RNA sequence: AGUGAGUUUAGAGGUGCAAGCGUUCAUCAGUAGAUGACUGGAAGAGGAUGAGCUCUUAAGAAAGUCGUGGAAAGGGAAGCUUGCCGAAGCAGCAUUCGUCUCAUACCGAGUGUUGUUGGGUCUGUUAUUGAAUAAAUGCAGAACUGUCGUAUAGUUUUAUCACAAACUAUAUGGAGGGCUAUCUCACGC
Numbered sequence: 001a002g003u004g005a006g007u008u009u010a011g012a013g014g015u016g017c018a019a020g021c022g023u024u025c026a027u028c029a030g031u032a033g034a035u036g037a038c039u040g041g042a043a044g045a046g047g048a049u050g051a052g053c054u055c056u057u058a059a060g061a062a063a064g065u066c067g068u069g070g071a072a073a074g075g076g077a078a079g080c081u082u083g084c085c086g087a088a089g090c091a092g093c094a095u096u097c098g099u100c101u102c103a104u105a106c107c108g109a110g111u112g113u114u115g116u117u118g119g120g121u122c123u124g125u126u127a128u129u130g131a132a133u134a135a136a137u138g139c140a141g142a143a144c145u146g147u148c149g150u151a152u153a154g155u156u157u158u159a160u161c162a163c164a165a166a167c168u169a170u171a172u173g174g175a176g177g178g179c180u181a182u183c184u185c186a187c188g189c
Stems, first nucleotide, its partner, number of pairs: 006184001009181003016084006023078003034068006088117011118145002121142004126138004147174010
Background:
The record is a 189-nucleotide RNA from Salipaludibacillus agaradhaerens, which matches "Lysine riboswitch aptamer" in Rfam. Taxonomically the source falls in Salipaludibacillus (Bacteria, Bacillati, Bacillota, Caryophanales).